[Rfam]
RNA: Ribosomal protein L20 leader
RNA sequence: UGAGAAAAGCAGAAGUGAGAACUUCUCGCCUUGCGACUGACGUUGUCUGGCCCUACAUAUCAAGUUUCUUAUUGGAACAUAAUGUGUGCGGGCUUGGUUUGUCAAGUCCGCUUUGUUUUUCUCUA
Numbered sequence: 001u002g003a004g005a006a007a008a009g010c011a012g013a014a015g016u017g018a019g020a021a022c023u024u025c026u027c028g029c030c031u032u033g034c035g036a037c038u039g040a041c042g043u044u045g046u047c048u049g050g051c052c053c054u055a056c057a058u059a060u061c062a063a064g065u066u067u068c069u070u071a072u073u074g075g076a077a078c079a080u081a082a083u084g085u086g087u088g089c090g091g092g093c094u095u096g097g098u099u100u101g102u103c104a105a106g107u108c109c110g111c112u113u114u115g116u117u118u119u120u121c122u123c124u125a
Stems, first nucleotide, its partner, number of pairs: 011026006028051003033046005088111009